[Rfam]
RNA sequence: GUUGCGAAAGCAACAUGACCGAAGACAGUUGGUGACAGUAGUCGUAAAUCCAACCGAGGACAAGAUUGAUUAAGCAUAUUAAUGAAAUUUUGUACUCUCUAUGUCUAUGGUUGGCGUGGAGUUUUUUUACGCCAUCA
Number, nucleotide and partner (000 for none) at each position: 001g000002u000003u000004g000005c000006g000007a000008a000009a000010g000011c000012a000013a000014c000015a000016u000017g000018a000019c000020c000021g000022a000023a000024g000025a000026c000027a000028g054029u053030u052031g051032g050033u000034g043035a042036c041037a000038g000039u000040a000041g036042u035043c034044g000045u000046a000047a000048a000049u000050c032051c031052a030053a029054c028055c000056g000057a000058g000059g000060a000061c000062a000063a000064g000065a000066u000067u000068g000069a000070u000071u000072a000073a000074g000075c000076a000077u000078a000079u000080u000081a000082a000083u000084g000085a000086a000087a000088u000089u000090u000091u000092g000093u000094a000095c000096u000097c121098u120099c119100u118101a117102u116103g115104u114105c113106u000107a000108u000109g000110g000111u000112u000113g105114g104115c103116g102117u101118g100119g099120a098121g097122u000123u000124u000125u000126u000127u000128u000129a000130c000131g000132c000133c000134a000135u000136c000137a000

Record summary:
The record is a 137-nucleotide RNA sequence from Pseudolactococcus insecticola, which matches "Ribosomal protein L10 leader" in Rfam. This family is a putative r-protein leader autoregulatory structure found in B. subtilis and other low-GC Gram-positive bacteria. It is located in the 5' untranslated regions of mRNAs encoding ribosomal proteins L10 and L12 (rplJ-rplL). A Rho-independent transcription terminator structure that is probably involved in regulation is included at the 3' end. The match comes from Rfam's covariance-model search (66 bits). NCBI's taxonomy places the organism under Bacteria, Bacillati, Lactobacillales, Streptococcaceae, Pseudolactococcus. Pairs were carried over by alignment from the consensus structure, which was predicted with CMfinder. The family's RNA type in Rfam is cis-regulatory leader. On this family, see Zengel and Lindahl, Prog Nucleic Acid Res Mol Biol 1994: "Diverse mechanisms for regulating ribosomal protein synthesis in Escherichia coli".